[Rfam]
RNA sequence: CCGUGCAAGAAGAAGCGCCCGCUUCUCACCUGGUCGACGCACUCGGCUGUUGCUAGGUUAUCCAUUUACAUCCAUGAUGAGAUUGGUAUGAGGAUAAAGUGUGGGCGCUAUGUGUCCACACUUUUUUGCUUGG
Numbered sequence: 001c002c003g004u005g006c007a008a009g010a011a012g013a014a015g016c017g018c019c020c021g022c023u024u025c026u027c028a029c030c031u032g033g034u035c036g037a038c039g040c041a042c043u044c045g046g047c048u049g050u051u052g053c054u055a056g057g058u059u060a061u062c063c064a065u066u067u068a069c070a071u072c073c074a075u076g077a078u079g080a081g082a083u084u085g086g087u088a089u090g091a092g093g094a095u096a097a098a099g100u101g102u103g104g105g106c107g108c109u110a111u112g113u114g115u116c117c118a119c120a121c122u123u124u125u126u127u128g129c130u131u132g133g
Base pairs, nucleotide, nucleotide: 011026012025013024014023015022016021028058029057030056036051037050038049039047040046100120101119102118103117104116105115106114107113108112
Rfam assigns this 133-nucleotide RNA from Thermoflavimicrobium daqui to the family "Ribosomal protein L20 leader".
On this family, see Zengel and Lindahl, Prog Nucleic Acid Res Mol Biol 1994: "Diverse mechanisms for regulating ribosomal protein synthesis in Escherichia coli".
Rfam describes the family as follows. This family is a putative r-protein leader autoregulatory structure found in B. subtilis and other low-GC Gram-positive bacteria. It is located in the 5' untranslated regions of mRNAs encoding initiation factor 3 followed by ribosomal proteins L35 and L20 (infC-rpmI-rplT). A Rho-independent transcription terminator structure that is probably involved in regulation is included at the 3' end.
Its family is annotated with regulation of gene expression in the Gene Ontology.
By type it is a cis-regulatory leader.
Lineage of the source: Bacteria > Bacillota > Bacilli > Caryophanales > Thermoflavimicrobium.